[Rfam]
RNA: Small nucleolar RNA R64/Z200 family
RNA sequence: GUUCUGCAAGGAUGAUUUAUGAAAUUUUUCACAUGUCAGACUUCAGAGAUUUUGUUUACAAGAUCCAUGAGAAGAGAAUUCAUUGUUCUGAGCAGAGA
Numbered sequence: 001g002u003u004c005u006g007c008a009a010g011g012a013u014g015a016u017u018u019a020u021g022a023a024a025u026u027u028u029u030c031a032c033a034u035g036u037c038a039g040a041c042u043u044c045a046g047a048g049a050u051u052u053u054g055u056u057u058a059c060a061a062g063a064u065c066c067a068u069g070a071g072a073a074g075a076g077a078a079u080u081c082a083u084u085g086u087u088c089u090g091a092g093c094a095g096a097g098a
Stems, first nucleotide, its partner, number of pairs: 002097006048065006
Dot-bracket structure: .((((((........................................((((((......))))))..........................)))))).